Shown here is a 75-nucleotide sequence from Streptomyces albiflaviniger, a member of the family "ASpks TB sRNA".
Taxonomically the source falls in Streptomyces (Bacteria, Bacillati, Actinomycetota, Actinomycetes).
It scores 86 bits against the family's covariance model.
The family has 77 seed sequences and 9,052 matches in Rfam 15.1.
The family's RNA type in Rfam is antisense RNA.
RNA sequence: CUUGAUCGAGCCCAGCAGCAGCGGCUGCUCGGCGGAGCGUUCCUGACCGUACGUGGCCAGCAGCGCCUGCGCCUC
Numbered sequence: 001c002u003u004g005a006u007c008g009a010g011c012c013c014a015g016c017a018g019c020a021g022c023g024g025c026u027g028c029u030c031g032g033c034g035g036a037g038c039g040u041u042c043c044u045g046a047c048c049g050u051a052c053g054u055g056g057c058c059a060g061c062a063g064c065g066c067c068u069g070c071g072c073c074u075c
Stems, first nucleotide, its partner, number of pairs: 014026003032070002038065002043060003047056003